[Rfam]
RNA sequence: GGGGAGCAUCCACAUGGGGAGAUGUUGCCUGAUACAAUCUUCCUACAUUAAACUACUGUUUUUUCCUGCUUGUAGCACUUGAGAUGAUCCUACAAGUUUCAAAUAGACAGUAACAAGU
Numbered sequence: 001g002g003g004g005a006g007c008a009u010c011c012a013c014a015u016g017g018g019g020a021g022a023u024g025u026u027g028c029c030u031g032a033u034a035c036a037a038u039c040u041u042c043c044u045a046c047a048u049u050a051a052a053c054u055a056c057u058g059u060u061u062u063u064u065c066c067u068g069c070u071u072g073u074a075g076c077a078c079u080u081g082a083g084a085u086g087a088u089c090c091u092a093c094a095a096g097u098u099u100c101a102a103a104u105a106g107a108c109a110g111u112a113a114c115a116a117g118u
Stems, first nucleotide, its partner, number of pairs: 001030003005026006055111003068097008077088001079086001
RNA: Small nucleolar RNA snoR104